[Rfam]
RNA sequence: GGAUCAGGCCUUUCAGGCAUCCUCUCCUAAAAACUUUUCGGGCCGGUCGUUUCGAUCGGCCUUUUUUUUCGUCGUAG
Numbered sequence: 001g002g003a004u005c006a007g008g009c010c011u012u013u014c015a016g017g018c019a020u021c022c023u024c025u026c027c028u029a030a031a032a033a034c035u036u037u038u039c040g041g042g043c044c045g046g047u048c049g050u051u052u053c054g055a056u057c058g059g060c061c062u063u064u065u066u067u068u069u070c071g072u073c074g075u076a077g
Base pairs, nucleotide, nucleotide: 008018009017010016011015040062041061042060043059044058045057046056047055048054

A member of the RNA family "Makes More Granules Regulator RNA (mmgR)" from Sphingobium sp. CAP-1, 77 nucleotides long. The literature on the family includes a 2005 paper in Genome Biol by Corbino et al., "Evidence for a second class of S-adenosylmethionine riboswitches and other regulatory RNA motifs in alpha-proteobacteria". Rfam classes the family as a small RNA. Lineage of the source: Bacteria > Pseudomonadati > Pseudomonadota > Alphaproteobacteria > Sphingobium. It scores 51 bits against the family's covariance model. From the family's description: SuhB later renamed mmgR (makes more granules regulator) was a putative non-coding RNA found multiple times in the Agrobacterium tumefaciens genome and related alpha-proteobacteria.